The family of this 66-nucleotide RNA sequence from Coffea canephora is "Plastid-psbA-2 3UTR RNA".
RNA sequence: AUAAAGGAGCAAUAAUUUCCUUCUUAUUCUCUUAAGAUAAGAGGGUCUUAUUGCUCCUUUAUUUAU
Numbered sequence: 001a002u003a004a005a006g007g008a009g010c011a012a013u014a015a016u017u018u019c020c021u022u023c024u025u026a027u028u029c030u031c032u033u034a035a036g037a038u039a040a041g042a043g044g045g046u047c048u049u050a051u052u053g054c055u056c057c058u059u060u061a062u063u064u065a066u
Stems, first nucleotide, its partner, number of pairs: 001062015017045003022042007
Rfam's curators write: Plastid psbA-2 is a non-coding RNA (ncRNA) present in plastids. It was identified in inverted repeat sequences in the 3 prime untranslate region (3UTR) of photosystem II quinone-binding protein (psbA).